[Rfam]
RNA sequence: GUGAAGUGAUGAUUCAGUUUAUCCAUUCGCUGAGUGCUGCGCUGACCUUCUUCAAGCCCAGGUUCCUGUUCUGGGAACUCGAGCAUGUGGCCCCCAGUGCCUGGUGGCCUGCAGUGUUCUGCUGUGGGUCCCUGGUGCUGGGAACUGCAAGAGGACAGGUUGGUGGUGGCAGGGUGGGGCCUCUGGGUCCCACCAAGAUGAGUGGUGGAAUCUGAUCAC
Numbered sequence: 001g002u003g004a005a006g007u008g009a010u011g012a013u014u015c016a017g018u019u020u021a022u023c024c025a026u027u028c029g030c031u032g033a034g035u036g037c038u039g040c041g042c043u044g045a046c047c048u049u050c051u052u053c054a055a056g057c058c059c060a061g062g063u064u065c066c067u068g069u070u071c072u073g074g075g076a077a078c079u080c081g082a083g084c085a086u087g088u089g090g091c092c093c094c095c096a097g098u099g100c101c102u103g104g105u106g107g108c109c110u111g112c113a114g115u116g117u118u119c120u121g122c123u124g125u126g127g128g129u130c131c132c133u134g135g136u137g138c139u140g141g142g143a144a145c146u147g148c149a150a151g152a153g154g155a156c157a158g159g160u161u162g163g164u165g166g167u168g169g170c171a172g173g174g175u176g177g178g179g180c181c182u183c184u185g186g187g188u189c190c191c192a193c194c195a196a197g198a199u200g201a202g203u204g205g206u207g208g209a210a211u212c213u214g215a216u217c218a219c
Stems, first nucleotide, its partner, number of pairs: 010218005017211004023205007030197002034193002036170004040165008049155005056084002059081001061080001062078006087148004093142001099138002101135001104132001106130011172191001177190002180187002